[Rfam]
RNA sequence: UUCGCAGAUAGAGGCGCGGUGCGGAUGAGUACCGGGUGGGAGACGGCAGUCGACGAUCCCCGGGAAAGGCCAAACCGCCGAAACUCCGAUCGAGGCGUCGGUCGGGCGUUGGGCGCGGGAGAAAUACUUCCGCGACUCCCGAAAGUCCGCAGGGGCUUUUGGAGGAGCUAUCGAUCGC
Numbered sequence: 001u002u003c004g005c006a007g008a009u010a011g012a013g014g015c016g017c018g019g020u021g022c023g024g025a026u027g028a029g030u031a032c033c034g035g036g037u038g039g040g041a042g043a044c045g046g047c048a049g050u051c052g053a054c055g056a057u058c059c060c061c062g063g064g065a066a067a068g069g070c071c072a073a074a075c076c077g078c079c080g081a082a083a084c085u086c087c088g089a090u091c092g093a094g095g096c097g098u099c100g101g102u103c104g105g106g107c108g109u110u111g112g113g114c115g116c117g118g119g120a121g122a123a124a125u126a127c128u129u130c131c132g133c134g135a136c137u138c139c140c141g142a143a144a145g146u147c148c149g150c151a152g153g154g155g156c157u158u159u160u161g162g163a164g165g166a167g168c169u170a171u172c173g174a175u176c177g178c
Base pairs, nucleotide, nucleotide: 007172008171009170010169011168016078017077018076019075020074023071024070032063033062034061035060036059038058039057082110083109084108085106086105087104088103089102090101091100092099111137112136114134115133116132117131118130119129120128121127139162140161141160142159143158144157145156
Rfam assigns this 178-nucleotide RNA from Sutterella megalosphaeroides to the family "Lysine riboswitch aptamer". Pairs were carried over by alignment from the consensus structure, which is taken from published work. A search with the family's covariance model found it, with a score of 84 bits.